RNA sequence: GAUCUUGAGGGAAGCGGUGAACCCUCGAGCCCAAGACGGGCGCCAGGGGCCGAGGGGGAGCGAGUGGCGCGACCGGCCCUCUGCACA
Number, nucleotide and partner (000 for none) at each position: 001g000002a000003u085004c000005u083006u000007g081008a080009g079010g078011g077012a000013a000014g061015c060016g000017g000018u000019g000020a000021a000022c056023c055024c054025u053026c052027g051028a000029g000030c048031c000032c000033a000034a000035g000036a000037c000038g074039g073040g070041c069042g068043c067044c066045a000046g000047g000048g030049g000050c000051c027052g026053a025054g024055g023056g022057g000058g000059a000060g015061c014062g000063a000064g000065u000066g044067g043068c042069g041070c040071g000072a000073c039074c038075g000076g000077c011078c010079c009080u008081c007082u000083g005084c000085a003086c000087a000